This 150-nucleotide RNA from Bowdeniella nasicola belongs to the Rfam family "c-di-AMP riboswitch aptamer (ydaO/yuaA leader)". A search with the family's covariance model found it, with a score of 54 bits. NCBI's taxonomy places the organism under Bacteria, Bacillati, Actinomycetota, Actinomycetaceae, Bowdeniella.
RNA sequence: CGGUGUCUCGGACCUAACAUGUGGCGAGGACGGGGGAACCAUCUCCGGUUCCUAACUGAAUCUCAGGUAGAACCUUGGGGUUAAGUGUGCAAACACCGGGCACUCCGCCCGCACCCGACAGCUCACCCCGUAGGCAUGGAGACAAUACGU
Numbered sequence: 001c002g003g004u005g006u007c008u009c010g011g012a013c014c015u016a017a018c019a020u021g022u023g024g025c026g027a028g029g030a031c032g033g034g035g036g037a038a039c040c041a042u043c044u045c046c047g048g049u050u051c052c053u054a055a056c057u058g059a060a061u062c063u064c065a066g067g068u069a070g071a072a073c074c075u076u077g078g079g080g081u082u083a084a085g086u087g088u089g090c091a092a093a094c095a096c097c098g099g100g101c102a103c104u105c106c107g108c109c110c111g112c113a114c115c116c117g118a119c120a121g122c123u124c125a126c127c128c129c130g131u132a133g134g135c136a137u138g139g140a141g142a143c144a145a146u147a148c149g150u
Stems, first nucleotide, its partner, number of pairs: 006136001008134002013029003030131006040077002078116003086095003098110004